[Rfam]
RNA sequence: UGCAGUUCUCAGGUGAAUCACCCUGGAAUCGGGCUCCCUCCUCUCUGAUUCCAGUUGUAUCACCUGAGAACACCC
Numbered sequence: 001u002g003c004a005g006u007u008c009u010c011a012g013g014u015g016a017a018u019c020a021c022c023c024u025g026g027a028a029u030c031g032g033g034c035u036c037c038c039u040c041c042u043c044u045c046u047g048a049u050u051c052c053a054g055u056u057g058u059a060u061c062a063c064c065u066g067a068g069a070a071c072a073c074c075c
Stems, first nucleotide, its partner, number of pairs: 002074001005071012019057002023054001025052009
A member of the RNA family "mir-9223 microRNA precursor family" from Myotis davidii, 75 nucleotides long. A search with the family's covariance model found it, with a score of 70 bits. Taxonomically the source falls in Myotis (Eukaryota, Craniata, Vertebrata, Sarcopterygii). The family's consensus secondary structure was predicted with RNAalifold.